[Rfam]
RNA sequence: GUUCUCUAAUAAGAGAAUAACGCUUGGUUUGUGGUUCCAAGCUAAGUCUAAAUAGUCGUCGAGUUCGCAGUCUUGGACUCGGAUGAGUGACACUGUUUAUGAAGAACGUCCCACAGUAA
Numbered sequence: 001g002u003u004c005u006c007u008a009a010u011a012a013g014a015g016a017a018u019a020a021c022g023c024u025u026g027g028u029u030u031g032u033g034g035u036u037c038c039a040a041g042c043u044a045a046g047u048c049u050a051a052a053u054a055g056u057c058g059u060c061g062a063g064u065u066c067g068c069a070g071u072c073u074u075g076g077a078c079u080c081g082g083a084u085g086a087g088u089g090a091c092a093c094u095g096u097u098u099a100u101g102a103a104g105a106a107c108g109u110c111c112c113a114c115a116g117u118a119a
Base pairs, nucleotide, nucleotide: 001018002017003016004015005014006013022042023041024040025039026038027037031114032113033112034111047102048101049099050098051097058091059090060089061088063084064083069079070078071077
A member of the RNA family "RAGATH-11 RNA", 119 nucleotides long. The family's RNA type in Rfam is small RNA. Rfam 15.1 lists 87 matches to the family in 4 species. The base pairs follow the family's consensus structure, which is taken from published work.